MIR398 microRNA precursor family: a 103-nucleotide RNA sequence from Centaurea solstitialis. NCBI's taxonomy places the organism under Eukaryota, campanulids, Asterales, Cardueae, Centaurea. For this family Rfam cites "Computational identification of plant microRNAs and their targets, including a stress-induced miRNA" (Jones-Rhoades and Bartel, Mol Cell, 2004). Gene Ontology terms of the family: RISC complex and miRNA-mediated post-transcriptional gene silencing.
[Rfam]
RNA sequence: AAAUACUCAACAGGUGUGACAUGAGAACACAUAUGUAAUGUACAAAAGCAAGUGGUUCUUUGUGCUUUAUUACGUGUUCUCAGGUCGCCCCUGUAGAGUUUUC
Numbered sequence: 001a002a003a004u005a006c007u008c009a010a011c012a013g014g015u016g017u018g019a020c021a022u023g024a025g026a027a028c029a030c031a032u033a034u035g036u037a038a039u040g041u042a043c044a045a046a047a048g049c050a051a052g053u054g055g056u057u058c059u060u061u062g063u064g065c066u067u068u069a070u071u072a073c074g075u076g077u078u079c080u081c082a083g084g085u086c087g088c089c090c091c092u093g094u095a096g097a098g099u100u101u102u103c
Stems, first nucleotide, its partner, number of pairs: 007097002011093004016088004023081008032072001
Dot-bracket structure: ......((..((((.((((...((((((((.(.......................................).))))))))...)))).))))..))......